[Rfam]
RNA: int-alpA RNA
RNA sequence: GUCGCACCUAGCCGGCGGCUGAUCACCCCGGCGAACAGCGGGAACCCUUCGCCCGCCGGUGCGACACCCCAUCGAAGG
Numbered sequence: 001g002u003c004g005c006a007c008c009u010a011g012c013c014g015g016c017g018g019c020u021g022a023u024c025a026c027c028c029c030g031g032c033g034a035a036c037a038g039c040g041g042g043a044a045c046c047c048u049u050c051g052c053c054c055g056c057c058g059g060u061g062c063g064a065c066a067c068c069c070c071a072u073c074g075a076a077g078g
Stems, first nucleotide, its partner, number of pairs: 001065008011032004038056005046078006